[Rfam]
RNA sequence: CCUGACCGGACGCCGAGUCCUGCCACCGGUCAGGGAACCAAGACCGCCGGCAGGAGCGGGGGACCCACUUCCGGGCAUCGACACGGUGUCCUUGGGGUGAAGUCGCACAGGGCGCAAGCGCUGUGCGGCCGGGUGAUUUCUCCCACCCGAACCCGACAGCUGACCUCGUAGGCGACAGGAGAGGGAACAC
Number, nucleotide and partner (000 for none) at each position: 001c000002c000003u000004g000005a000006c000007c000008g000009g000010a000011c174012g173013c172014c171015g000016a000017g000018u055019c054020c053021u052022g051023c050024c049025a000026c000027c000028g000029g000030u000031c000032a000033g000034g000035g000036a000037a000038c000039c000040a000041a000042g000043a000044c000045c000046g000047c000048c000049g024050g023051c022052a021053g020054g019055a018056g169057c168058g167059g166060g165061g164062g000063a000064c000065c000066c094067a093068c000069u000070u000071c000072c000073g000074g000075g000076c000077a000078u000079c000080g000081a000082c000083a000084c000085g000086g000087u000088g000089u000090c000091c000092u000093u067094g066095g154096g153097g152098u000099g000100a000101a000102g000103u128104c127105g126106c125107a124108c123109a122110g121111g000112g000113c000114g000115c000116a000117a000118g000119c000120g000121c110122u109123g108124u107125g106126c105127g104128g103129c000130c000131g148132g147133g146134u145135g000136a000137u000138u000139u000140c000141u000142c000143c000144c000145a134146c133147c132148c131149g000150a000151a000152c097153c096154c095155g000156a000157c000158a000159g000160c000161u000162g000163a000164c061165c060166u059167c058168g057169u056170a000171g014172g013173c012174g011175a000176c000177a000178g000179g000180a000181g000182a000183g000184g000185g000186a000187a000188c000189a000190c000
c-di-AMP riboswitch aptamer (ydaO/yuaA leader): a 190-nucleotide sequence from Isoptericola sp. CG 20/1183. The organism belongs to Isoptericola, within Bacteria. A search with the family's covariance model found it, with a score of 72 bits.